[Rfam]
RNA sequence: AUGAAAAAUUGUUAGGUGAGGCUCCUAUGCAAACAUAAGCCACUGCCCGGAAAUGUCGAGAGACACCAACGUGGUAGAACAGGAAUUGCCGGAUUAAGGCUCUUCAUAAGGUGGCUAAGAUGUACUCUUUACGUUGCACAGUGCUAAAACUCAACGAGGUUUUUGCUA
Dot-bracket structure: ....((((.((([.(((..(((..((.(((((......(((((.(((((....((((....))))....)).))).......(((..(((......])))..))).....))))).(((.......)))....))))).)).)))...)))..))...).))))....

This 168-nucleotide sequence from Brochothrix campestris belongs to the Rfam family "M-box riboswitch aptamer (ykoK leader)". Rfam describes the family as follows. M-box riboswitch, also know as ykoK leader is described as a metaloregulatory RNA that sense divalent metals and function as a genetic control element of genes related to divalent metal transport in bacteria. It was first reported upstream of the B.subtilis ykoK gene and genes with related functions in other bacteria.